Notes
Rfam assigns this 154-nucleotide RNA sequence from Pararge aegeria to the family "Wolbachia sRNA 46". On this family, see Mayoral et al., Proc Natl Acad Sci U S A 2014: "Wolbachia small noncoding RNAs and their role in cross-kingdom communications". Pairs were carried over by alignment from the consensus structure. A search with the family's covariance model found it, with a score of 106 bits. By type it is a small RNA.

[Rfam]
RNA sequence: CCCUUAUGAAGUUGGUGGUGUCAUUCCAGUGCUUGACGCUGGAAUCUAGAAAACUUAAUCAUAAACGAGCACACUAUACAACAUUUUUGAUGAAAUUUCAUAAUAAACUGGAUUCCAGCGUCAAGCACUGGAAUGACACCAUCGUUAACAACAC
Numbered sequence: 001c002c003c004u005u006a007u008g009a010a011g012u013u014g015g016u017g018g019u020g021u022c023a024u025u026c027c028a029g030u031g032c033u034u035g036a037c038g039c040u041g042g043a044a045u046c047u048a049g050a051a052a053a054c055u056u057a058a059u060c061a062u063a064a065a066c067g068a069g070c071a072c073a074c075u076a077u078a079c080a081a082c083a084u085u086u087u088u089g090a091u092g093a094a095a096u097u098u099c100a101u102a103a104u105a106a107a108c109u110g111g112a113u114u115c116c117a118g119c120g121u122c123a124a125g126c127a128c129u130g131g132a133a134u135g136a137c138a139c140c141a142u143c144g145u146u147a148a149c150a151a152c153a154c
Stems, first nucleotide, its partner, number of pairs: 011149003019138031
Dot-bracket structure: ..........(((.....(((((((((((((((((((((((((((((((..........................................................)))))))))))))))))))))))))))))))........))).....